[Rfam]
RNA: Small nucleolar RNA SNORD99
RNA sequence: CCUGGUCAAUGAUGACUCCUUUUUAAAUGGUGACUGUUGGAUGAAUCCUGCGGAUAUGGGGCUGAGGCCAGGC
Numbered sequence: 001c002c003u004g005g006u007c008a009a010u011g012a013u014g015a016c017u018c019c020u021u022u023u024u025a026a027a028u029g030g031u032g033a034c035u036g037u038u039g040g041a042u043g044a045a046u047c048c049u050g051c052g053g054a055u056a057u058g059g060g061g062c063u064g065a066g067g068c069c070a071g072g073c
Stems, first nucleotide, its partner, number of pairs: 001072005